[Rfam]
RNA sequence: UGGAAGCAAAGUUCUGUGACACUCAGACUCUGAUUAUCAUAGAAGUCAGUGCACUACAGAACUUUGUCUCCAG
Number, nucleotide and partner (000 for none) at each position: 001u000002g000003g000004a069005a000006g067007c066008a065009a064010a063011g062012u061013u060014c059015u058016g057017u000018g000019a000020c051021a050022c049023u048024c000025a000026g047027a046028c045029u044030c000031u000032g000033a000034u000035u000036a000037u000038c000039a000040u000041a000042g000043a000044a029045g028046u027047c026048a023049g022050u021051g020052c000053a000054c000055u000056a000057c016058a015059g014060a013061a012062c011063u010064u009065u008066g007067u006068c000069u004070c000071c000072a000073g000

Notes: The record is a 73-nucleotide RNA from Varanus komodoensis, which matches "mir-148/mir-152 microRNA precursor family" in Rfam. Gene Ontology terms of the family: miRNA-mediated post-transcriptional gene silencing and RISC complex. A reference for the family is Kim et al. (2004), "Identification of many microRNAs that copurify with polyribosomes in mammalian neurons", Proc Natl Acad Sci U S A.